[Rfam]
RNA: MIR6217 microRNA precursor family
RNA sequence: UGGCCGCAGAAUAAGCUGUUCGGUGCACACUUUGAGUUACGAUAAUUACUAUACUAAUUUACGAGAUUAUGGUAACUCUCUCGUAAGUGAUUUACUAUAGCGUUAUGGUAAAUAUCAUCUUAAAUUAUAGUAACCCAUAUAUCGUAAAUAUGUAUUGUCAUUAUCGUAAAUUCGUACAAACAUUAUCGUAAAUCAAGAUGAUCAUAGAGUAAGUUAUUCUGUGGCCA
Numbered sequence: 001u002g003g004c005c006g007c008a009g010a011a012u013a014a015g016c017u018g019u020u021c022g023g024u025g026c027a028c029a030c031u032u033u034g035a036g037u038u039a040c041g042a043u044a045a046u047u048a049c050u051a052u053a054c055u056a057a058u059u060u061a062c063g064a065g066a067u068u069a070u071g072g073u074a075a076c077u078c079u080c081u082c083g084u085a086a087g088u089g090a091u092u093u094a095c096u097a098u099a100g101c102g103u104u105a106u107g108g109u110a111a112a113u114a115u116c117a118u119c120u121u122a123a124a125u126u127a128u129a130g131u132a133a134c135c136c137a138u139a140u141a142u143c144g145u146a147a148a149u150a151u152g153u154a155u156u157g158u159c160a161u162u163a164u165c166g167u168a169a170a171u172u173c174g175u176a177c178a179a180a181c182a183u184u185a186u187c188g189u190a191a192a193u194c195a196a197g198a199u200g201a202u203c204a205u206a207g208a209g210u211a212a213g214u215u216a217u218u219c220u221g222u223g224g225c226c227a
Stems, first nucleotide, its partner, number of pairs: 001227014017211005023205003028200002031197003037191010050178001052176003056172007065165003069161003074155001079148001081146001087142003092137001093132008103122001108116001